[Rfam]
RNA: mir-155 microRNA precursor family
Organism: Leptocoma aspasia
RNA sequence: UUGUUAAUGCUAAUCGUGAUAGGGGUUUUGCCUAUGACUGACUCCUACACAUUAGCAUUAACAC
Numbered sequence: 001u002u003g004u005u006a007a008u009g010c011u012a013a014u015c016g017u018g019a020u021a022g023g024g025g026u027u028u029u030g031c032c033u034a035u036g037a038c039u040g041a042c043u044c045c046u047a048c049a050c051a052u053u054a055g056c057a058u059u060a061a062c063a064c
Base pairs, nucleotide, nucleotide: 004061005060006059007058008057009056010055011054012053013052014051020047021046022045023044025042026041027040